[Rfam]
RNA sequence: AUUGGUUGAAGAAAGUAGCUUUAUGUGAAAUAAACCUUUACACAGAAGGAGAGGCACUUCCAUGGAGUUAAUCCAAAAAUAGCACCUCUGAUAUGGCAAGUCGGACGCUUCUUGCAUGGUGAGGUAUAGCAGUAACUCAUUUCAUGAUUUGUCAUUACGCAGUUAUAACCUGCUUCUAUAAUAUACUGUACGGAGGACGAAAACUACCCAUGAAUAGU
Numbered sequence: 001a002u003u004g005g006u007u008g009a010a011g012a013a014a015g016u017a018g019c020u021u022u023a024u025g026u027g028a029a030a031u032a033a034a035c036c037u038u039u040a041c042a043c044a045g046a047a048g049g050a051g052a053g054g055c056a057c058u059u060c061c062a063u064g065g066a067g068u069u070a071a072u073c074c075a076a077a078a079a080u081a082g083c084a085c086c087u088c089u090g091a092u093a094u095g096g097c098a099a100g101u102c103g104g105a106c107g108c109u110u111c112u113u114g115c116a117u118g119g120u121g122a123g124g125u126a127u128a129g130c131a132g133u134a135a136c137u138c139a140u141u142u143c144a145u146g147a148u149u150u151g152u153c154a155u156u157a158c159g160c161a162g163u164u165a166u167a168a169c170c171u172g173c174u175u176c177u178a179u180a181a182u183a184u185a186c187u188g189u190a191c192g193g194a195g196g197a198c199g200a201a202a203a204c205u206a207c208c209c210a211u212g213a214a215u216a217g218u
Stems, first nucleotide, its partner, number of pairs: 004038002019025001063075004085196006092190001093155010107115002118141006159189005
The family of this 218-nucleotide RNA is "RT-2 RNA". It is annotated as a small RNA. It is one of the family's seed sequences.